[Rfam]
RNA sequence: GGAGUCGGACGGGUCGUCGCUUGGGGCGUAUGCGCCCCGAGAGGAAAGUCCGGGCUCCGCAGGGCAGGACGCUGGGUAACCCCCAGGGGGAGCGAUCCCCGGACAGUGCCACAGAAAACAAACCGCCCGCGCGGCACACCGCCGCCCGGGUAAGGGUGAAACGGUGGGGUAAGAGCCCACCAGUUGCCGCGGCGACGCGGCAAGCUUGGUAAACCCCGUCCGGAGCAAGACCAAAUAGGGGGGCGUUUGAGGUCGGCCCGGCCGAAGCCCCCGGGUAGGUUGCUCGAGGCCAGGAGUAAUCCUGGCCCCAGAGGAAUGACGACCACCCGCCCUCGCGGCGGGUACAGAACCCGGCUUACAGUCCGGCUCCCAUC
Numbered sequence: 001g002g003a004g005u006c007g008g009a010c011g012g013g014u015c016g017u018c019g020c021u022u023g024g025g026g027c028g029u030a031u032g033c034g035c036c037c038c039g040a041g042a043g044g045a046a047a048g049u050c051c052g053g054g055c056u057c058c059g060c061a062g063g064g065c066a067g068g069a070c071g072c073u074g075g076g077u078a079a080c081c082c083c084c085a086g087g088g089g090g091a092g093c094g095a096u097c098c099c100c101g102g103a104c105a106g107u108g109c110c111a112c113a114g115a116a117a118a119c120a121a122a123c124c125g126c127c128c129g130c131g132c133g134g135c136a137c138a139c140c141g142c143c144g145c146c147c148g149g150g151u152a153a154g155g156g157u158g159a160a161a162c163g164g165u166g167g168g169g170u171a172a173g174a175g176c177c178c179a180c181c182a183g184u185u186g187c188c189g190c191g192g193c194g195a196c197g198c199g200g201c202a203a204g205c206u207u208g209g210u211a212a213a214c215c216c217c218g219u220c221c222g223g224a225g226c227a228a229g230a231c232c233a234a235a236u237a238g239g240g241g242g243g244c245g246u247u248u249g250a251g252g253u254c255g256g257c258c259c260g261g262c263c264g265a266a267g268c269c270c271c272c273g274g275g276u277a278g279g280u281u282g283c284u285c286g287a288g289g290c291c292a293g294g295a296g297u298a299a300u301c302c303u304g305g306c307c308c309c310a311g312a313g314g315a316a317u318g319a320c321g322a323c324c325a326c327c328c329g330c331c332c333u334c335g336c337g338g339c340g341g342g343u344a345c346a347g348a349a350c351c352c353g354g355c356u357u358a359c360a361g362u363c364c365g366g367c368u369c370c371c372a373u374c
Base pairs, nucleotide, nucleotide: 001370002369003368004367005366006365007364008363009362010361011359012324013323014322015321016320017319018318020041021040022039023038024037025036026035027034028033046357047356048355050354051353052352053351054350055225056224057223058222062259063258064257065256067221068220069219070218071217072086073085074084075083076082087100088099089098090097091096101216102215106214107213108210109209110208123155124154125151126150127149128148129147131145132144133143134142135141163181164180165179166178167177168176183205184203185202186201187200188199189198190197191196229281230280231279232278239272240271241270242269243268244267251263252262253261254260288307289306290305291304292303293302294301295300
The record is a 374-nucleotide sequence from Oceanidesulfovibrio indonesiensis, which matches "Bacterial RNase P class A" in Rfam. It is annotated as a ribozyme.